[Rfam]
RNA: Bradyrhizobiaceae sRNA BjrC80
Organism: Rhodopseudomonas sp.
RNA sequence: AGUUGGAAGGCGCUGCCGGCAAUGUCGCCCCCCGCUGACGGCGCCUUCUGGGGACGGGUCAAAAACUCGUCCCCUCCCAAUACCUUCCGGCAGGAGUAAGCCCCCCUCCGUCGGAAGGCUAGGCGGGCGGUGAAGUUCCCCCAGCUUCACCGCCCGUUUCC
Numbered sequence: 001a002g003u004u005g006g007a008a009g010g011c012g013c014u015g016c017c018g019g020c021a022a023u024g025u026c027g028c029c030c031c032c033c034g035c036u037g038a039c040g041g042c043g044c045c046u047u048c049u050g051g052g053g054a055c056g057g058g059u060c061a062a063a064a065a066c067u068c069g070u071c072c073c074c075u076c077c078c079a080a081u082a083c084c085u086u087c088c089g090g091c092a093g094g095a096g097u098a099a100g101c102c103c104c105c106c107u108c109c110g111u112c113g114g115a116a117g118g119c120u121a122g123g124c125g126g127g128c129g130g131u132g133a134a135g136u137u138c139c140c141c142c143a144g145c146u147u148c149a150c151c152g153c154c155c156g157u158u159u160c161c
Stems, first nucleotide, its partner, number of pairs: 009045007017037004050074010076123001081121001083118002087114004093109004125155012
Dot-bracket structure: ........(((((((.((((.............)))).)))))))....((((((((((.....)))))))))).(....(.((..((((..((((.........)))).))))..))..).).((((((((((((.......))))))))))))......